[Rfam]
RNA: Small nucleolar RNA SNORD82
Organism: Mus musculus
RNA sequence: AGCACAAGUGAUGAGUGACAAAGGGACUUAAUACUGAACCAUGGGGUUGAAAUGAAAUAUGCUGAUGUGC
Numbered sequence: 001a002g003c004a005c006a007a008g009u010g011a012u013g014a015g016u017g018a019c020a021a022a023g024g025g026a027c028u029u030a031a032u033a034c035u036g037a038a039c040c041a042u043g044g045g046g047u048u049g050a051a052a053u054g055a056a057a058u059a060u061g062c063u064g065a066u067g068u069g070c
Base pairs, nucleotide, nucleotide: 002070003069004068005067006066